[Rfam]
A member of the RNA family "SmY spliceosomal RNA" from Cylicocyclus nassatus, 80 nucleotides long. A search with the family's covariance model found it, with a score of 54 bits. The family's consensus secondary structure is taken from published work. By type it is a spliceosomal small nuclear RNA. The literature on the family includes a 2009 paper in RNA Biol by Jones et al., "A survey of nematode SmY RNAs".

RNA sequence: UGAAAUCUCUUAAAUGCUUCUGGGCCUUUGCUAAGACCCUGAGUACGAAUUUUUGGAGGCCUUUGCGAAUGCAAAGGUCA
Numbered sequence: 001u002g003a004a005a006u007c008u009c010u011u012a013a014a015u016g017c018u019u020c021u022g023g024g025c026c027u028u029u030g031c032u033a034a035g036a037c038c039c040u041g042a043g044u045a046c047g048a049a050u051u052u053u054u055g056g057a058g059g060c061c062u063u064u065g066c067g068a069a070u071g072c073a074a075a076g077g078u079c080a
Stems, first nucleotide, its partner, number of pairs: 022039003026035003058079009